[Rfam]
RNA sequence: UUCCUCUUGCAAUGGCCAAAGACACACCUCUUUGGUGGUGUUUUUAUAACAGUCAGAGGCAAAGCAAGUGGUGGCCCCUUGUUCAUCCCAGCUCUACGCCUGGCUUCGUGGCCAAAGCUGUUUUAUGCAUAGAACACAGAA
Numbered sequence: 001u002u003c004c005u006c007u008u009g010c011a012a013u014g015g016c017c018a019a020a021g022a023c024a025c026a027c028c029u030c031u032u033u034g035g036u037g038g039u040g041u042u043u044u045u046a047u048a049a050c051a052g053u054c055a056g057a058g059g060c061a062a063a064g065c066a067a068g069u070g071g072u073g074g075c076c077c078c079u080u081g082u083u084c085a086u087c088c089c090a091g092c093u094c095u096a097c098g099c100c101u102g103g104c105u106u107c108g109u110g111g112c113c114a115a116a117g118c119u120g121u122u123u124u125a126u127g128c129a130u131a132g133a134a135c136a137c138a139g140a141a
Base pairs, nucleotide, nucleotide: 001061003059004058005057006056007055013051014050019045020044021043024041025040026039027038028037080136081135082134083133084132095129097127101125102124103123107120108119